[Rfam]
RNA sequence: AAUAGCAAGCCUUGAAAACACACAUGCACCGGCACAUGGUCCCGGGUGCCGCUGGCCGCGUCUGACGCAGUCACCGGUCGGAUCCAUGGGGUGCGUGGAGGCCUAAC
Numbered sequence: 001a002a003u004a005g006c007a008a009g010c011c012u013u014g015a016a017a018a019c020a021c022a023c024a025u026g027c028a029c030c031g032g033c034a035c036a037u038g039g040u041c042c043c044g045g046g047u048g049c050c051g052c053u054g055g056c057c058g059c060g061u062c063u064g065a066c067g068c069a070g071u072c073a074c075c076g077g078u079c080g081g082a083u084c085c086a087u088g089g090g091g092u093g094c095g096u097g098g099a100g101g102c103c104u105a106a107c
Stems, first nucleotide, its partner, number of pairs: 023097008035088005040082003048078004

Rfam assigns this 107-nucleotide RNA sequence from Vreelandella nanhaiensis to the family "t44 RNA". Rfam classes the family as a small RNA. It scores 71 bits against the family's covariance model. The base pairs follow the family's consensus structure, which was predicted with LocARNA. The organism belongs to Vreelandella, within Bacteria.